[Rfam]
RNA sequence: GCCCCCGUCAUUGGGGAGUAGCCUCCCUCCGCACCGGAGGGGCUUGCGUCAACAUACUUGCUCGACACACGGGCAUGGCGCAGGCGGUUCAGUCUUGGCGAGACCUUUGAUCGUGCCGCACACCGGAAGGGCCGGGGUGGCUGCACGAUCAUUGGUUUUCAUCGUCCGGCCCUCGGAGUCC
Numbered sequence: 001g002c003c004c005c006c007g008u009c010a011u012u013g014g015g016g017a018g019u020a021g022c023c024u025c026c027c028u029c030c031g032c033a034c035c036g037g038a039g040g041g042g043c044u045u046g047c048g049u050c051a052a053c054a055u056a057c058u059u060g061c062u063c064g065a066c067a068c069a070c071g072g073g074c075a076u077g078g079c080g081c082a083g084g085c086g087g088u089u090c091a092g093u094c095u096u097g098g099c100g101a102g103a104c105c106u107u108u109g110a111u112c113g114u115g116c117c118g119c120a121c122a123c124c125g126g127a128a129g130g131g132c133c134g135g136g137g138u139g140g141c142u143g144c145a146c147g148a149u150c151a152u153u154g155g156u157u158u159u160c161a162u163c164g165u166c167c168g169g170c171c172c173u174c175g176g177a178g179u180c181c
Stems, first nucleotide, its partner, number of pairs: 026040003042085010059075005086180005092174001

A member of the RNA family "Manganese Mn2+ riboswitch aptamer (yybP-ykoY)" from Pigmentiphaga litoralis, 181 nucleotides long. It scores 84 bits against the family's covariance model. The organism belongs to Pigmentiphaga, within Bacteria.